[Rfam]
RNA sequence: AGAGGUCACAAGUUUGAGGCCAUAGCAGAAGUGCUCACAGCCUGGCCCUGUCAGAUUCCAAGAAAUCUGUGAACACUGUU
Numbered sequence: 001a002g003a004g005g006u007c008a009c010a011a012g013u014u015u016g017a018g019g020c021c022a023u024a025g026c027a028g029a030a031g032u033g034c035u036c037a038c039a040g041c042c043u044g045g046c047c048c049u050g051u052c053a054g055a056u057u058c059c060a061a062g063a064a065a066u067c068u069g070u071g072a073a074c075a076c077u078g079u080u
Base pairs, nucleotide, nucleotide: 016048018047019046020045021044024080025079026078027077028076031043033041052069053068054067055066056065057064

Record summary
Mammalian CPEB3 ribozyme: an 80-nucleotide sequence from Crocodylus porosus. The match comes from Rfam's covariance-model search (42 bits).